[Rfam]
RNA sequence: UGACAGUGGUGAUGAUGACGACUUUUGUCUUUUCUCCUGAAAGUCACCAUGUAGGAUUUUAAGUCACUACCUCAUCUGAACUGUCA
Numbered sequence: 001u002g003a004c005a006g007u008g009g010u011g012a013u014g015a016u017g018a019c020g021a022c023u024u025u026u027g028u029c030u031u032u033u034c035u036c037c038u039g040a041a042a043g044u045c046a047c048c049a050u051g052u053a054g055g056a057u058u059u060u061a062a063g064u065c066a067c068u069a070c071c072u073c074a075u076c077u078g079a080a081c082u083g084u085c086a
Stems, first nucleotide, its partner, number of pairs: 002085006
The record is an 86-nucleotide RNA from Mola mola, which matches "Small nucleolar RNA SNORD11B" in Rfam. The literature on the family includes a 2006 paper in Nucleic Acids Res by Yang et al., "snoSeeker: an advanced computational package for screening of guide and orphan snoRNA genes in the human genome". The base pairs follow the family's consensus structure, which was predicted with WAR. Rfam classes the family as a C/D-box small nucleolar RNA. Lineage of the source: Eukaryota > Actinopteri > Neoteleostei > Ctenosquamata > Mola.